[Rfam]
RNA sequence: ACUUACCAAUCAUGCUGACACCAUCCACUCAAGCUUGACUGACUUGCCUACCCGAGUCCACCAUCAACAGUUGGCCCGAGUUUAAGGCCUAGUU
Numbered sequence: 001a002c003u004u005a006c007c008a009a010u011c012a013u014g015c016u017g018a019c020a021c022c023a024u025c026c027a028c029u030c031a032a033g034c035u036u037g038a039c040u041g042a043c044u045u046g047c048c049u050a051c052c053c054g055a056g057u058c059c060a061c062c063a064u065c066a067a068c069a070g071u072u073g074g075c076c077c078g079a080g081u082u083u084a085a086g087g088c089c090u091a092g093u094u
Stems, first nucleotide, its partner, number of pairs: 003092003007087001
Shown here is a 94-nucleotide RNA sequence from Oryza punctata, a member of the family "Small nucleolar RNA Z256". A reference for the family is Chen et al. (2003), "The high diversity of snoRNAs in plants: identification and comparative study of 120 snoRNA genes from Oryza sativa", Nucleic Acids Res. The base pairs follow the family's consensus structure. NCBI's taxonomy places the organism under Eukaryota, Viridiplantae, Magnoliopsida, Oryzeae, Oryza. Rfam links the family to the GO terms nucleolus and RNA processing. By type it is a C/D-box small nucleolar RNA.